[Rfam]
RNA sequence: UCCUUAUCGAGAGCGGGCGAGAAAUCUGGUUCGAUGACCCCGCGGCAACCAUACGAGUACGUAACGGUGCCCAUUCCAGCAAGCUUCGGCUUGGAAGAUGAGGG
Numbered sequence: 001u002c003c004u005u006a007u008c009g010a011g012a013g014c015g016g017g018c019g020a021g022a023a024a025u026c027u028g029g030u031u032c033g034a035u036g037a038c039c040c041c042g043c044g045g046c047a048a049c050c051a052u053a054c055g056a057g058u059a060c061g062u063a064a065c066g067g068u069g070c071c072c073a074u075u076c077c078a079g080c081a082a083g084c085u086u087c088g089g090c091u092u093g094g095a096a097g098a099u100g101a102g103g104g
Stems, first nucleotide, its partner, number of pairs: 001104008013043005021032003026079004044071004049067002052063004075096001080093005
RNA: SAM riboswitch aptamer (S box leader)